[Rfam]
RNA: EcpR1
RNA sequence: AUGACCCACGGAAAGUUCAGGUCCGCCGCAUCUCCUGACACCGUGGGCCCGAUCGGCGUCCCCCGGGUUUGGAGUGGCCUCCUCGUGUCCCGGCAGGGACGCCGAUCGCCAA
Numbered sequence: 001a002u003g004a005c006c007c008a009c010g011g012a013a014a015g016u017u018c019a020g021g022u023c024c025g026c027c028g029c030a031u032c033u034c035c036u037g038a039c040a041c042c043g044u045g046g047g048c049c050c051g052a053u054c055g056g057c058g059u060c061c062c063c064c065g066g067g068u069u070u071g072g073a074g075u076g077g078c079c080u081c082c083u084c085g086u087g088u089c090c091c092g093g094c095a096g097g098g099a100c101g102c103c104g105a106u107c108g109c110c111a112a
Base pairs, nucleotide, nucleotide: 003049005047006046007045008044009043010042017038018037019036020035021034051107052106053105054104055103056102057101058100059099060098061097